[Rfam]
This 219-nucleotide sequence from Cyanomargarita calcarea belongs to the Rfam family "HNH endonuclease-associated RNA and ORF (HEARO) RNA".
RNA sequence: GUCAACAACCCACCACUGACCUGAAUACAGGUACAGUGGGGGCUUGAAAAACAGCCCUAGUUGACCCGUCUAAGUAUUUCGAGUACUACGUUUUUUGAGUCAUGACACCUACAAAUGCGACGCCAGUUUGUAGCUCUGUCAUCUAACAUUAAACAACCGUUUGGGAGGUAGUGUGUUAGGUCUAAAAAGCUCUUAAAACAUUGACUAGGCGAACAUUAC
Numbered sequence: 001g002u003c004a005a006c007a008a009c010c011c012a013c014c015a016c017u018g019a020c021c022u023g024a025a026u027a028c029a030g031g032u033a034c035a036g037u038g039g040g041g042g043c044u045u046g047a048a049a050a051a052c053a054g055c056c057c058u059a060g061u062u063g064a065c066c067c068g069u070c071u072a073a074g075u076a077u078u079u080c081g082a083g084u085a086c087u088a089c090g091u092u093u094u095u096u097g098a099g100u101c102a103u104g105a106c107a108c109c110u111a112c113a114a115a116u117g118c119g120a121c122g123c124c125a126g127u128u129u130g131u132a133g134c135u136c137u138g139u140c141a142u143c144u145a146a147c148a149u150u151a152a153a154c155a156a157c158c159g160u161u162u163g164g165g166a167g168g169u170a171g172u173g174u175g176u177u178a179g180g181u182c183u184a185a186a187a188a189g190c191u192c193u194u195a196a197a198a199c200a201u202u203g204a205c206u207a208g209g210c211g212a213a214c215a216u217u218a219c
Stems, first nucleotide, its partner, number of pairs: 001065006008058001010042002013039006044054003068205003072201001073087005090199005097192004105139002109133008121211004141181009153172002156169003160165001

The family's RNA type in Rfam is non-coding RNA gene. The source organism's lineage runs through Bacteria, Bacillati, Cyanobacteriota, Cyanomargarita and Cyanomargarita calcarea. Rfam 15.1 lists 952 matches to the family in 249 species.